[Rfam]
RNA sequence: UGAUAUUCUCAGGGCGGGGUGUAAUUCCCCACCGGCGGUAACCAAUUAAGGGAGUCCGCGAGCGUUUUUCUUAUGAAAGAGUCAGCAGAUCUGGUGAAAAUCCAGAACCGACGGUAAUAGUCCGGAUGAAAGAGAAUACGA
Numbered sequence: 001u002g003a004u005a006u007u008c009u010c011a012g013g014g015c016g017g018g019g020u021g022u023a024a025u026u027c028c029c030c031a032c033c034g035g036c037g038g039u040a041a042c043c044a045a046u047u048a049a050g051g052g053a054g055u056c057c058g059c060g061a062g063c064g065u066u067u068u069u070c071u072u073a074u075g076a077a078a079g080a081g082u083c084a085g086c087a088g089a090u091c092u093g094g095u096g097a098a099a100a101u102c103c104a105g106a107a108c109c110g111a112c113g114g115u116a117a118u119a120g121u122c123c124g125g126a127u128g129a130a131a132g133a134g135a136a137u138a139c140g141a
Stems, first nucleotide, its partner, number of pairs: 004138007017029003031121002033110002035059004054108002062086002090106005112124003
RNA: FMN riboswitch aptamer (RFN element)